[Rfam]
RNA sequence: UGCAAAUGUCCCUAGGGUUCCGGCGUCCUGUGACGCGACUGGUCCGAGAGGGGCAGCCCGGCCUUACGCCGGGUCCACGGCGGGACAAAAGCCCGGGAGGC
Numbered sequence: 001u002g003c004a005a006a007u008g009u010c011c012c013u014a015g016g017g018u019u020c021c022g023g024c025g026u027c028c029u030g031u032g033a034c035g036c037g038a039c040u041g042g043u044c045c046g047a048g049a050g051g052g053g054c055a056g057c058c059c060g061g062c063c064u065u066a067c068g069c070c071g072g073g074u075c076c077a078c079g080g081c082g083g084g085a086c087a088a089a090a091g092c093c094c095g096g097g098a099g100g101c
Stems, first nucleotide, its partner, number of pairs: 007055006015045002020042002022039001023036005056074007076096001078099001082094003

Guanidine-I riboswitch aptamer: a 101-nucleotide RNA from Ancylobacter novellus. It scores 92 bits against the family's covariance model. The organism belongs to Ancylobacter novellus, within Bacteria.